[Rfam]
Shown here is a 73-nucleotide sequence from Dialister sp. CAG:357, a member of the family "tRNA". The family's consensus secondary structure is taken from published work. It is annotated as a transfer RNA. Taxonomically the source falls in Dialister (Bacteria, Bacillota, Veillonellales, Veillonellaceae).
RNA sequence: GCGGGUGUGGUGAAGCGGCUAACACGGCGGAUUGUGGCUCCGUUAUGCGUGGGUUCGAGCCCCACCACUCGCC
Numbered sequence: 001g002c003g004g005g006u007g008u009g010g011u012g013a014a015g016c017g018g019c020u021a022a023c024a025c026g027g028c029g030g031a032u033u034g035u036g037g038c039u040c041c042g043u044u045a046u047g048c049g050u051g052g053g054u055u056c057g058a059g060c061c062c063c064a065c066c067a068c069u070c071g072c073c
Base pairs, nucleotide, nucleotide: 001072002071003070004069005068006067007066010025011024012023027043028042029041030040031039049065050064051063052062053061
Dot-bracket structure: (((((((..(((..........))).(((((.......))))).....(((((.......)))))))))))).